This 88-nucleotide sequence from Ilumatobacter coccineus belongs to the Rfam family "Glycine riboswitch aptamer".

[Rfam]
RNA sequence: UGACCCCGAUCGGGAGAGCCACAGUGCAGUGGCGCCGAAGGAGCAACCACCCCGGAAAUCUCUCAGGCAUCCGGACCGUUCGAGGCAG
Numbered sequence: 001u002g003a004c005c006c007c008g009a010u011c012g013g014g015a016g017a018g019c020c021a022c023a024g025u026g027c028a029g030u031g032g033c034g035c036c037g038a039a040g041g042a043g044c045a046a047c048c049a050c051c052c053c054g055g056a057a058a059u060c061u062c063u064c065a066g067g068c069a070u071c072c073g074g075a076c077c078g079u080u081c082g083a084g085g086c087a088g
Stems, first nucleotide, its partner, number of pairs: 007082003011078003019032004034068003037064002041062003047055002
From the family's description: This family represents the bacterial glycine riboswitch.